Rfam assigns this 104-nucleotide RNA sequence from Parageobacillus caldoxylosilyticus to the family "SAM riboswitch aptamer (S box leader)".
RNA sequence: UUCUUAUCAAGAGAGGGGGAGGGACUGGCCCAGUGAACCCUCAGCAACCUGGCGGAAGCCAAGGUGCUAAAUCCAGACAGGCGAAAGCGCCUGGAAGAUAAGAA
Numbered sequence: 001u002u003c004u005u006a007u008c009a010a011g012a013g014a015g016g017g018g019g020a021g022g023g024a025c026u027g028g029c030c031c032a033g034u035g036a037a038c039c040c041u042c043a044g045c046a047a048c049c050u051g052g053c054g055g056a057a058g059c060c061a062a063g064g065u066g067c068u069a070a071a072u073c074c075a076g077a078c079a080g081g082c083g084a085a086a087g088c089g090c091c092u093g094g095a096a097g098a099u100a101a102g103a104a
Stems, first nucleotide, its partner, number of pairs: 001104008013042005021031003025076004043068004048064002050061004072096001078093006

The match comes from Rfam's covariance-model search (94 bits).
Pairs were carried over by alignment from the consensus structure, which is taken from published work.